[Rfam]
This 96-nucleotide RNA sequence from Bacteriovorax stolpii belongs to the Rfam family "Bacterial small signal recognition particle RNA". Taxonomically the source falls in Bacteriovorax (Bacteria, Bdellovibrionota, Bacteriovoracia, Bacteriovoracaceae). It scores 61 bits against the family's covariance model. It is annotated as a non-coding RNA gene. The signal recognition particle (SRP) is a universally conserved ribonucleoprotein involved in the co-translational targeting of proteins to membranes.

RNA sequence: AGUUAGGGGGCAGCAAAGGUACGAUCGGUCAACCCCGCCAGGCCCGGAAGGGAGCAACGGUAGCUGUUUCUGCUUUGUGCUGUUUUCCUAGCUACU
Numbered sequence: 001a002g003u004u005a006g007g008g009g010g011c012a013g014c015a016a017a018g019g020u021a022c023g024a025u026c027g028g029u030c031a032a033c034c035c036c037g038c039c040a041g042g043c044c045c046g047g048a049a050g051g052g053a054g055c056a057a058c059g060g061u062a063g064c065u066g067u068u069u070c071u072g073c074u075u076u077g078u079g080c081u082g083u084u085u086u087c088c089u090a091g092c093u094a095c096u
Stems, first nucleotide, its partner, number of pairs: 003091005008085006014077001016076006024068001026066004035060003043052003